[Rfam]
RNA sequence: GUGUCCCCUAGAGUUCCCCUGAACACUUCACUGGCGAUUAUACACUGUUUUCUUCGCAAAGAAGUGAAAAUAUCCCUACUGAAUUUCUUCGCAAAGAAGUGAAAAUAUCCCUACUGAAGUGUUUGGGGGAACUCCUGGGCUCAU
Numbered sequence: 001g002u003g004u005c006c007c008c009u010a011g012a013g014u015u016c017c018c019c020u021g022a023a024c025a026c027u028u029c030a031c032u033g034g035c036g037a038u039u040a041u042a043c044a045c046u047g048u049u050u051u052c053u054u055c056g057c058a059a060a061g062a063a064g065u066g067a068a069a070a071u072a073u074c075c076c077u078a079c080u081g082a083a084u085u086u087c088u089u090c091g092c093a094a095a096g097a098a099g100u101g102a103a104a105a106u107a108u109c110c111c112u113a114c115u116g117a118a119g120u121g122u123u124u125g126g127g128g129g130a131a132c133u134c135c136u137g138g139g140c141u142c143a144u
Stems, first nucleotide, its partner, number of pairs: 006139003011134010022124002024121007032113003
Source information:
A member of the RNA family "mir-395 microRNA precursor family" from Actinidia chinensis, 144 nucleotides long. For this family Rfam cites "Computational Identification of Plant MicroRNAs and Their Targets, Including a Stress-Induced miRNA" (Jones-Rhoades and Bartel, Mol Cell, 2004). Pairs were carried over by alignment from the consensus structure, which was predicted with PFOLD. Gene Ontology terms of the family: miRNA-mediated post-transcriptional gene silencing and RISC complex. Rfam's curators write: mir-395 was identified in both Arabidopsis thaliana and Oryza sativa computationally and was later experimentally verified. mir-395 is thought to target mRNAs coding for ATP sulphurylases. The mature sequence is excised from the 3' arm of the hairpin.